Background: The record is a 114-nucleotide sequence from Stenotrophomonas maltophilia, which matches "Xanthomonadaceae sRNA sX13" in Rfam. On this family, see Schmidtke et al., Nucleic Acids Res 2011: "Genome-wide transcriptome analysis of the plant pathogen Xanthomonas identifies sRNAs with putative virulence functions". The family's consensus secondary structure was predicted with CMfinder. The sequence is in the family's curated seed alignment. Rfam classes the family as a small RNA.
[Rfam]
RNA sequence: AACGCCUGUUGUGGAUCUCUCCCAUCCCCUGGAGCAGAUCUCGGAACGGGGACUCCUCCCCAAGUGCCCGUUCCCCGGCCCCGUUGACCUCCCCCUGGUCAGCGGGGCUUUUUA
Numbered sequence: 001a002a003c004g005c006c007u008g009u010u011g012u013g014g015a016u017c018u019c020u021c022c023c024a025u026c027c028c029c030u031g032g033a034g035c036a037g038a039u040c041u042c043g044g045a046a047c048g049g050g051g052a053c054u055c056c057u058c059c060c061c062a063a064g065u066g067c068c069c070g071u072u073c074c075c076c077g078g079c080c081c082c083g084u085u086g087a088c089c090u091c092c093c094c095c096u097g098g099u100c101a102g103c104g105g106g107g108c109u110u111u112u113u114a
Base pairs, nucleotide, nucleotide: 004012006011013041014040015039016038017037018036019034020033021032022031043074044073045072046071047070048069049068050067052065053064054063077109078108079107080106081105082104083103084102086100087099088098089097